The record is a 76-nucleotide RNA from Eumeta japonica, which matches "mir-9/mir-79 microRNA precursor family" in Rfam. NCBI's taxonomy places the organism under Eukaryota, Hexapoda, Ditrysia, Tineoidea, Eumeta. The family's consensus secondary structure was predicted with RNAalifold. Its family is annotated with RISC complex and miRNA-mediated post-transcriptional gene silencing in the Gene Ontology.

[Rfam]
RNA sequence: GGUGUAUUAUCUUUGGUUAUCUAGCUGUAUGAGUAUUUUGGACGUCAUAAAGCUAGGUUACCGGAGUUAAGAACCA
Dot-bracket structure: .(..(.(((.(((((((.((((((((.(((((............))))).)))))))).))))))).))).)..).